[Rfam]
This 103-nucleotide RNA from Cnephaeus nilssonii belongs to the Rfam family "Vault RNA". The source organism's lineage runs through Eukaryota, Opisthokonta, Metazoa, Mammalia and Cnephaeus. By type it is a non-coding RNA gene.

RNA sequence: GGGCUGGCCUUAGCUCAGCGGUUCCUUCUAGUCAAGCCUCUGCUUGCCAACCACUCUUGCUAGUGAGGGUGGCUUGAGACCUGUGGGCACCCUCAGCUUUUCU
Numbered sequence: 001g002g003g004c005u006g007g008c009c010u011u012a013g014c015u016c017a018g019c020g021g022u023u024c025c026u027u028c029u030a031g032u033c034a035a036g037c038c039u040c041u042g043c044u045u046g047c048c049a050a051c052c053a054c055u056c057u058u059g060c061u062a063g064u065g066a067g068g069g070u071g072g073c074u075u076g077a078g079a080c081c082u083g084u085g086g087g088c089a090c091c092c093u094c095a096g097c098u099u100u101u102c103u
Base pairs, nucleotide, nucleotide: 002098003097004096005095006094013088014087015086016085018084019083020082021081026078027077028076030074031073032072